Background: A member of the RNA family "RAGATH-15 RNA", 296 nucleotides long. For this family Rfam cites "New classes of self-cleaving ribozymes revealed by comparative genomics analysis" (Weinberg et al., Nat Chem Biol, 2015). The sequence is in the family's curated seed alignment. The base pairs follow the family's consensus structure, which is taken from published work. The family's RNA type in Rfam is small RNA.
RNA sequence: CGGGUCGCUCCCGAGUCAUAGUUAAGGCAAGCUAUGAGUGCAUGUAUUUACAUGUAUUGCAAAUCCACAUAUUCGUUGUGUUUGCACCACAACAAUAUGAGUGGGACACUAUAAUUUAUAAUAAUAGUGCGAAUACUGCGUUUUCUUACAUGGCAUGAGAUGUAAGAAAACUAACAGUUAGAUUUAAACAGAUGGAGAUACACAAAUGUUUGAAUCCCAGUAACAAAAAUCCUGGUAUCUCGGGUAUACAGUAGUGCAGAUACUGUAUUUUUAAUGCUCCAAUAGGAGUUGUUGGG
Numbered sequence: 001c002g003g004g005u006c007g008c009u010c011c012c013g014a015g016u017c018a019u020a021g022u023u024a025a026g027g028c029a030a031g032c033u034a035u036g037a038g039u040g041c042a043u044g045u046a047u048u049u050a051c052a053u054g055u056a057u058u059g060c061a062a063a064u065c066c067a068c069a070u071a072u073u074c075g076u077u078g079u080g081u082u083u084g085c086a087c088c089a090c091a092a093c094a095a096u097a098u099g100a101g102u103g104g105g106a107c108a109c110u111a112u113a114a115u116u117u118a119u120a121a122u123a124a125u126a127g128u129g130c131g132a133a134u135a136c137u138g139c140g141u142u143u144u145c146u147u148a149c150a151u152g153g154c155a156u157g158a159g160a161u162g163u164a165a166g167a168a169a170a171c172u173a174a175c176a177g178u179u180a181g182a183u184u185u186a187a188a189c190a191g192a193u194g195g196a197g198a199u200a201c202a203c204a205a206a207u208g209u210u211u212g213a214a215u216c217c218c219a220g221u222a223a224c225a226a227a228a229a230u231c232c233u234g235g236u237a238u239c240u241c242g243g244g245u246a247u248a249c250a251g252u253a254g255u256g257c258a259g260a261u262a263c264u265g266u267a268u269u270u271u272u273a274a275u276g277c278u279c280c281a282a283u284a285g286g287a288g289u290u291g292u293u294g295g296g
Base pairs, nucleotide, nucleotide: 001013002012003011004010016037017036018035019034020033021032022031038057039056040055041054042053043052044051069098070097071096072095073094075093076092077091078090079089103218104217105216106215107129108128109127110126111125112124114122135178136177137176138175141170142169143168144167145166146165147164148163150161151160183214184213185212186211187210188209189208190207231244232243233242234241246268247267248266249265250264251263252262276289277288278287279286